[Rfam]
RNA: mir-2796 microRNA precursor family
RNA sequence: CAUCCGGAUCAGGGGUUUCUUUCGGCCUCCAGCGGAAUACGAUUGCUGUAGGCCGGCGGAAACUACUUGCUUCUGGUG
Numbered sequence: 001c002a003u004c005c006g007g008a009u010c011a012g013g014g015g016u017u018u019c020u021u022u023c024g025g026c027c028u029c030c031a032g033c034g035g036a037a038u039a040c041g042a043u044u045g046c047u048g049u050a051g052g053c054c055g056g057c058g059g060a061a062a063c064u065a066c067u068u069g070c071u072u073c074u075g076g077u078g
Stems, first nucleotide, its partner, number of pairs: 006073003010069004014064007022056007030048003